Shown here is a 97-nucleotide RNA sequence from Branchiostoma belcheri, a member of the family "mir-2060 microRNA precursor family". The organism belongs to Branchiostoma, within Eukaryota. Pairs were carried over by alignment from the consensus structure, which was predicted with RNAalifold. The family has 7 seed sequences and 3,696 matches in Rfam 15.1.
[Rfam]
RNA sequence: GCUCUGUGUGUGGAUAGCUUCCAGCACCAAGGACAGGCAUACUUGUCUGCCUCUGUGUGUGGAUGGUGUUCAGCACCAAGGACAGGUGUGACCACUA
Numbered sequence: 001g002c003u004c005u006g007u008g009u010g011u012g013g014a015u016a017g018c019u020u021c022c023a024g025c026a027c028c029a030a031g032g033a034c035a036g037g038c039a040u041a042c043u044u045g046u047c048u049g050c051c052u053c054u055g056u057g058u059g060u061g062g063a064u065g066g067u068g069u070u071c072a073g074c075a076c077c078a079a080g081g082a083c084a085g086g087u088g089u090g091a092c093c094a095c096u097a
Stems, first nucleotide, its partner, number of pairs: 004085004015078001017076001020073001023070007031058001033056004037050003